The record is a 110-nucleotide sequence from Umezawaea tangerina, which matches "mraW RNA" in Rfam. It scores 59 bits against the family's covariance model. The source organism's lineage runs through Bacteria, Bacillati, Actinomycetes, Pseudonocardiales and Umezawaea. Rfam classes the family as a cis-regulatory element. Rfam 15.1 lists 851 matches to the family in 821 species.
RNA sequence: UGGUUCGGGUGCCGUGAGGCCUCGGUCCGCUCGGCUUUCGGCCCUGGCGCACCUUCCCCGGCGCCAGGUUCGACGGGCGGGCGGGGACCUGACGACACCCGACCUCCACG
Dot-bracket structure: .......((((.((...((.(((.((((((((.....((((.((((((((..........)))))))).)))).)))))))).))).))...)).))))...........
Numbered sequence: 001u002g003g004u005u006c007g008g009g010u011g012c013c014g015u016g017a018g019g020c021c022u023c024g025g026u027c028c029g030c031u032c033g034g035c036u037u038u039c040g041g042c043c044c045u046g047g048c049g050c051a052c053c054u055u056c057c058c059c060g061g062c063g064c065c066a067g068g069u070u071c072g073a074c075g076g077g078c079g080g081g082c083g084g085g086g087a088c089c090u091g092a093c094g095a096c097a098c099c100c101g102a103c104c105u106c107c108a109c110g
Stems, first nucleotide, its partner, number of pairs: 008099004013094002018089002021086003025082008038073004043068008